[Rfam]
RNA sequence: UGGGUGGUAUCUUAAUAGAACCUCACCAGAAUUUUCACAUUUAAUUUUUAGCAACUCAUAUCUAUAUGAAUGAGAUUGAAUU
Numbered sequence: 001u002g003g004g005u006g007g008u009a010u011c012u013u014a015a016u017a018g019a020a021c022c023u024c025a026c027c028a029g030a031a032u033u034u035u036c037a038c039a040u041u042u043a044a045u046u047u048u049u050a051g052c053a054a055c056u057c058a059u060a061u062c063u064a065u066a067u068g069a070a071u072g073a074g075a076u077u078g079a080a081u082u
Stems, first nucleotide, its partner, number of pairs: 001028003004024001006022003010019002052078003055074005061069002
A member of the RNA family "pan motif" from Clostridium taeniosporum, 82 nucleotides long.
Taxonomically the source falls in Clostridium (Bacteria, Clostridia, Eubacteriales, Clostridiaceae).
By type it is a cis-regulatory element.